About this RNA: The family of this 111-nucleotide sequence from Artemisia annua is "Small nucleolar RNA snoR97".
[Rfam]
RNA sequence: UUGUGCCAACCAGCUUGGGGUCACCAAGAACUCAGAGAGUAAUAUGUUGUCUUAUGAGCUUCUUCUCUUGUCAUAUUUACGAGAUUGGAGCCAAGCAGCAGCACAACAUUG
Numbered sequence: 001u002u003g004u005g006c007c008a009a010c011c012a013g014c015u016u017g018g019g020g021u022c023a024c025c026a027a028g029a030a031c032u033c034a035g036a037g038a039g040u041a042a043u044a045u046g047u048u049g050u051c052u053u054a055u056g057a058g059c060u061u062c063u064u065c066u067c068u069u070g071u072c073a074u075a076u077u078u079a080c081g082a083g084a085u086u087g088g089a090g091c092c093a094a095g096c097a098g099c100a101g102c103a104c105a106a107c108a109u110u111g
Base pairs, nucleotide, nucleotide: 043105045103046102047101048100049099058091059090060089061088062087064084065083066082067081

The source organism's lineage runs through Eukaryota, Tracheophyta, Asterales, Asteroideae and Artemisia. The family has 7 seed sequences and 862 matches in Rfam 15.1.